[Rfam]
The record is a 144-nucleotide RNA from Clostridium sp. CAG:138, which matches "SAM riboswitch aptamer (S box leader)" in Rfam. A search with the family's covariance model found it, with a score of 75 bits. The family's consensus secondary structure is taken from published work.
RNA sequence: GCCUUAUCAAGAGUGGCAGAGGGAACGGCCCGGUGAAGCCACGGCAACCUGUUUAAUGCGAAAGCUUUUCACAAGGUGCCAAAUCCGACGGCAUUGCCCGGCGCAAACUUUUUUUGUUGAGCUGCGGCUGCCGGGAGAUGAGAG
Numbered sequence: 001g002c003c004u005u006a007u008c009a010a011g012a013g014u015g016g017c018a019g020a021g022g023g024a025a026c027g028g029c030c031c032g033g034u035g036a037a038g039c040c041a042c043g044g045c046a047a048c049c050u051g052u053u054u055a056a057u058g059c060g061a062a063a064g065c066u067u068u069u070c071a072c073a074a075g076g077u078g079c080c081a082a083a084u085c086c087g088a089c090g091g092c093a094u095u096g097c098c099c100g101g102c103g104c105a106a107a108c109u110u111u112u113u114u115u116g117u118u119g120a121g122c123u124g125c126g127g128c129u130g131c132c133g134g135g136a137g138a139u140g141a142g143a144g
Base pairs, nucleotide, nucleotide: 003142004141005140006139007138008137013042014041015040016039017038021031022030023029026087027086028085043080044079045078046077048076049075050073051072052071084136089133090132091131092130093129